[Rfam]
RNA sequence: UGCCCCAGCAAUGGGGAAAGUGACACCUUGUUGAUGGAAUUGAUCUUAUAUCAGUCAGUGGCAGAGCAGGUGGCAGUCCUUUGUUCAUCCUAGCUUGAUGUCUGGCUUGGUGGCCAAAGCUGCCUUAUGCCUAAGGCUCAUAA
Dot-bracket structure: ((((.(.(...(((...(((.((..((........))..))...)))...)))..).).))))...................(((...........(.(...(((..((.(.......).))..))).).)...)))......
RNA: Small nucleolar RNA SNORA48